[Rfam]
RNA sequence: AGCUGGAUAAGGUACUCUAUUGUACACGUUGUCAAAAUGAGCACCUUAUCCAUAGAG
Numbered sequence: 001a002g003c004u005g006g007a008u009a010a011g012g013u014a015c016u017c018u019a020u021u022g023u024a025c026a027c028g029u030u031g032u033c034a035a036a037a038u039g040a041g042c043a044c045c046u047u048a049u050c051c052a053u054a055g056a057g
Stems, first nucleotide, its partner, number of pairs: 004052009018039004022033001024032001
RNA: mir-7386 microRNA precursor family
Organism: Monodelphis domestica